[Rfam]
RNA sequence: AGUGAAGUCACUGGAGGCAUUGAUUCAUCGAUCUCUUCUUGGAAAUUUGUUGUGACAUUAACACAAACAUGAAUCAGUCGAUAAGUCUUUGCAUCUAGCGCUCACGUC
Numbered sequence: 001a002g003u004g005a006a007g008u009c010a011c012u013g014g015a016g017g018c019a020u021u022g023a024u025u026c027a028u029c030g031a032u033c034u035c036u037u038c039u040u041g042g043a044a045a046u047u048u049g050u051u052g053u054g055a056c057a058u059u060a061a062c063a064c065a066a067a068c069a070u071g072a073a074u075c076a077g078u079c080g081a082u083a084a085g086u087c088u089u090u091g092c093a094u095c096u097a098g099c100g101c102u103c104a105c106g107u108c
Base pairs, nucleotide, nucleotide: 013096014095015094018091019090022087023086024085025084027082028081029080030079031078032077036073037072038071
RNA: MIR162_1 microRNA precursor family